[Rfam]
The record is a 130-nucleotide RNA from Capra hircus, which matches "Small nucleolar RNA SNORA11" in Rfam. The base pairs follow the family's consensus structure, which was predicted with RNAalifold. Its family is annotated with RNA processing and nucleolus in the Gene Ontology. A reference for the family is Gu et al. (2005), "A novel experimental approach for systematic identification of box H/ACA snoRNAs from eukaryotes", Nucleic Acids Res. The organism belongs to Capra, within Eukaryota. Rfam's curators write: U107 (SNORA11) is a member of the H/ACA class of snoRNAs that guide the sites of modification of uridines to pseudouridines. This snoRNA was identified by RT-PCR from blood cells and its expression confirmed by Northern blot analysis. There is no predicted target for this guide snRNA.
RNA sequence: GGGGUAUGCUCAGAGCAAGGCCCUGAAAAAAUGGCUUCUCUGCUUACAACACACUGGACGGGAAUCUGUAUUCAUUGUUUACAAAGGGCACAAAAGGUGUGGCCUUCCUACAAACAUCCAUCAUGUGUCC
Dot-bracket structure: ..(((.((....(((((.((..((........))...)).)))))....)).))).............(..(...(((......(((.((((.....)))).)))........)))...)..).......